[Rfam]
RNA: bZIP non canonical Hac1/Xbp1 intron
RNA sequence: GGCUAGUCCUGCAGCAGCUAGUCCUGCAGCGACUGGUCCUUCAGCAGCUAGUCCUGCAGCGGCUAGUCCUGCAGUGGCUAGUC
Numbered sequence: 001g002g003c004u005a006g007u008c009c010u011g012c013a014g015c016a017g018c019u020a021g022u023c024c025u026g027c028a029g030c031g032a033c034u035g036g037u038c039c040u041u042c043a044g045c046a047g048c049u050a051g052u053c054c055u056g057c058a059g060c061g062g063c064u065a066g067u068c069c070u071g072c073a074g075u076g077g078c079u080a081g082u083c
Base pairs, nucleotide, nucleotide: 001083002082003081004080005079006078007077009074010073011072012071013070018036019035020034021033022032023031049065050064051063052062053061